[Rfam]
RNA sequence: GUGCUUCAAGGAUGAACGAAGUCUCCCACAUUGGUGUCCAUCUUUUUCACUGUCAGCUUUGUCUUUCAUGUCUUGCUGAUCACUGUUGGAUGGAAGAUCU
Numbered sequence: 001g002u003g004c005u006u007c008a009a010g011g012a013u014g015a016a017c018g019a020a021g022u023c024u025c026c027c028a029c030a031u032u033g034g035u036g037u038c039c040a041u042c043u044u045u046u047u048c049a050c051u052g053u054c055a056g057c058u059u060u061g062u063c064u065u066u067c068a069u070g071u072c073u074u075g076c077u078g079a080u081c082a083c084u085g086u087u088g089g090a091u092g093g094a095a096g097a098u099c100u
Stems, first nucleotide, its partner, number of pairs: 037094006052080006
RNA: Small nucleolar RNA snoR99